[Rfam]
RNA: Guanidine-II riboswitch aptamer (mini-ykkC)
Organism: Jejuibacter calystegiae
RNA sequence: CAUCCGGGACGACCCGGGUGACUUUCAUCUUUGUCAGGACGACCUGA
Numbered sequence: 001c002a003u004c005c006g007g008g009a010c011g012a013c014c015c016g017g018g019u020g021a022c023u024u025u026c027a028u029c030u031u032u033g034u035c036a037g038g039a040c041g042a043c044c045u046g047a
Stems, first nucleotide, its partner, number of pairs: 001020008034047005